This 131-nucleotide sequence from Glareola pratincola belongs to the Rfam family "Small Cajal body specific RNA 23". The match comes from Rfam's covariance-model search (62 bits). The base pairs follow the family's consensus structure, which was predicted with RNAfold. scaRNAs are a specific class of small nuclear RNAs which localise to the Cajal bodies and guide the modification of RNA polymerase II transcribed spliceosomal RNAs U1, U2, U4, U5 and U12. ACA11 belongs to the H/ACA box class of guide RNAs as it has the predicted hairpin-hinge-hairpin-tail structure,the conserved H/ACA-box motifs and is found associated with GAR1. H/ACA snRNAs are predicted to guide the modification of uridines to pseudouridines in substrate RNAs however, no target RNA has been identified for scaRNA ACA11. Rfam classes the family as a small Cajal body RNA. The organism belongs to Glareola, within Eukaryota.
RNA sequence: GUGCUCGCAAGAACACUCAUCCUGCCCUGUGGCUGCGAUGAGUUCUGGGAGAAUGUGAGCUAGAGCACGCGUAUUGCUUUGGGAGUGUCCCAUUCCAGGCCAUAUGAGACACUACAGUUUUCAAUACAACA
Number, nucleotide and partner (000 for none) at each position: 001g000002u000003g060004c059005u058006c057007g056008c055009a000010a000011g000012a044013a043014c042015a000016c000017u000018c040019a039020u038021c037022c000023u000024g000025c032026c031027c000028u000029g000030u000031g026032g025033c000034u000035g000036c000037g021038a020039u019040g018041a000042g014043u013044u012045c000046u000047g000048g000049g000050a000051g000052a000053a000054u000055g008056u007057g006058a005059g004060c003061u000062a000063g000064a000065g000066c000067a000068c000069g000070c000071g127072u000073a125074u124075u123076g122077c000078u000079u117080u116081g115082g000083g000084a113085g112086u111087g110088u109089c108090c000091c106092a103093u102094u000095c000096c000097a000098g000099g000100c000101c000102a093103u092104a000105u000106g091107a000108g089109a088110c087111a086112c085113u084114a000115c081116a080117g079118u000119u000120u000121u000122c076123a075124a074125u073126a000127c071128a000129a000130c000131a000
The literature on the family includes a 2002 paper in EMBO J by Darzacq et al., "Cajal body-specific small nuclear RNAs: a novel class of 2'-O-methylation and pseudouridylation guide RNAs".